[Rfam]
RNA sequence: GAGCACCCUAAAGAAUCGCUGUCAAAGUAUCACAUACGGAGCAUUAAUCUUUGGAUUAUUAGCUCUUUUCUAUUACUUUGGGGAAAGUCCUCGGACACAUGACAGAAAGUGUCGCCCAUAAUGAGGCAUAACCAAUUCGUAUCAUAUGACCUUCCUUACGACCAAAGAAGAGUUUUCCUCGAGGUUAUUGGAAGUGUCGCGAAUUUGGUUUGUUGGUCAUAGCACAGUUAUGCGAUUGUAGCUUCUUUCCGUAAAGGAGAGAUGUUAUAACACAACGAGGCUUACUCUUAGGAUGUU
Numbered sequence: 001g002a003g004c005a006c007c008c009u010a011a012a013g014a015a016u017c018g019c020u021g022u023c024a025a026a027g028u029a030u031c032a033c034a035u036a037c038g039g040a041g042c043a044u045u046a047a048u049c050u051u052u053g054g055a056u057u058a059u060u061a062g063c064u065c066u067u068u069u070c071u072a073u074u075a076c077u078u079u080g081g082g083g084a085a086a087g088u089c090c091u092c093g094g095a096c097a098c099a100u101g102a103c104a105g106a107a108a109g110u111g112u113c114g115c116c117c118a119u120a121a122u123g124a125g126g127c128a129u130a131a132c133c134a135a136u137u138c139g140u141a142u143c144a145u146a147u148g149a150c151c152u153u154c155c156u157u158a159c160g161a162c163c164a165a166a167g168a169a170g171a172g173u174u175u176u177c178c179u180c181g182a183g184g185u186u187a188u189u190g191g192a193a194g195u196g197u198c199g200c201g202a203a204u205u206u207g208g209u210u211u212g213u214u215g216g217u218c219a220u221a222g223c224a225c226a227g228u229u230a231u232g233c234g235a236u237u238g239u240a241g242c243u244u245c246u247u248u249c250c251g252u253a254a255a256g257g258a259g260a261g262a263u264g265u266u267a268u269a270a271c272a273c274a275a276c277g278a279g280g281c282u283u284a285c286u287c288u289u290a291g292g293a294u295g296u297u
Stems, first nucleotide, its partner, number of pairs: 002297004007292005014237006022081007039065004085283003089280004101113004114129001117126001119124001131209003139200002143196002150191002160186004171179002239267004244262006
RNA: RNase MRP